[Rfam]
RNA sequence: GGAUGCCCGUGCAGCGUGGCCUCUGCCCGAACCGGCCCUGGCGUACUUCCCCGACGCCAGGUCCACUUCGGUCAGAGACCUCGCUGCAGGGGCCCGGCAUC
Numbered sequence: 001g002g003a004u005g006c007c008c009g010u011g012c013a014g015c016g017u018g019g020c021c022u023c024u025g026c027c028c029g030a031a032c033c034g035g036c037c038c039u040g041g042c043g044u045a046c047u048u049c050c051c052c053g054a055c056g057c058c059a060g061g062u063c064c065a066c067u068u069c070g071g072u073c074a075g076a077g078a079c080c081u082c083g084c085u086g087c088a089g090g091g092g093c094c095c096g097g098c099a100u101c
Stems, first nucleotide, its partner, number of pairs: 010088007018080002021077005027071005034064002037061008
Dot-bracket structure: .........(((((((.((.(((((.(((((..((.((((((((.........)))))))).))..))))).))))).)).))))))).............
This 101-nucleotide RNA sequence from Mycolicibacterium cosmeticum belongs to the Rfam family "mraW RNA". By type it is a cis-regulatory element. The family's consensus secondary structure is taken from published work. Lineage of the source: Bacteria > Actinomycetes > Mycobacteriaceae > Mycobacterium > Mycobacterium (subgen. Mycolicibacterium).